[Rfam]
RNA: U7 small nuclear RNA
Organism: Tupaia belangeri
RNA sequence: UAGUGUCACAGCUCUUUUAGAAUUUGUCUAGCAGGUUUUCCGGUUUGUACCAGGAAAUCCCAC
Numbered sequence: 001u002a003g004u005g006u007c008a009c010a011g012c013u014c015u016u017u018u019a020g021a022a023u024u025u026g027u028c029u030a031g032c033a034g035g036u037u038u039u040c041c042g043g044u045u046u047g048u049a050c051c052a053g054g055a056a057a058u059c060c061c062a063c
Base pairs, nucleotide, nucleotide: 034060035059037057038056039055040054041053042051043050044049